[Rfam]
RNA sequence: AGAAAAGAGGUGCCGCCCCGCACAGGGGCGACGCUAGCAAACCGAUAAGAAAGCAAGUUCAGCGAGGAGCGCGAAUAACCAAACAACAAGACAUCCACGCGCCCGCG
Numbered sequence: 001a002g003a004a005a006a007g008a009g010g011u012g013c014c015g016c017c018c019c020g021c022a023c024a025g026g027g028g029c030g031a032c033g034c035u036a037g038c039a040a041a042c043c044g045a046u047a048a049g050a051a052a053g054c055a056a057g058u059u060c061a062g063c064g065a066g067g068a069g070c071g072c073g074a075a076u077a078a079c080c081a082a083a084c085a086a087c088a089a090g091a092c093a094u095c096c097a098c099g100c101g102c103c104c105g106c107g
Stems, first nucleotide, its partner, number of pairs: 011073003014030006058065002098107003